[Rfam]
RNA sequence: CGUCCGGAUCCGCCGAGUCCCCCGGAGGGGGAGCCGGGGACCCAACCGGGCUUCUCGGGGUGAAUCGACGCACGGCGUCGUAGGGCUUCUCCGGCCCGAACCCGUCAGCUAACCCGGCAGGCGGCGAGGAGAGGAGAG
Numbered sequence: 001c002g003u004c005c006g007g008a009u010c011c012g013c014c015g016a017g018u019c020c021c022c023c024g025g026a027g028g029g030g031g032a033g034c035c036g037g038g039g040a041c042c043c044a045a046c047c048g049g050g051c052u053u054c055u056c057g058g059g060g061u062g063a064a065u066c067g068a069c070g071c072a073c074g075g076c077g078u079c080g081u082a083g084g085g086c087u088u089c090u091c092c093g094g095c096c097c098g099a100a101c102c103c104g105u106c107a108g109c110u111a112a113c114c115c116g117g118c119a120g121g122c123g124g125c126g127a128g129g130a131g132a133g134g135a136g137a138g
Stems, first nucleotide, its partner, number of pairs: 011123004018032006033118006043057001058103003066080004083097004
RNA: c-di-AMP riboswitch aptamer (ydaO/yuaA leader)
Organism: Actinomadura rubteroloni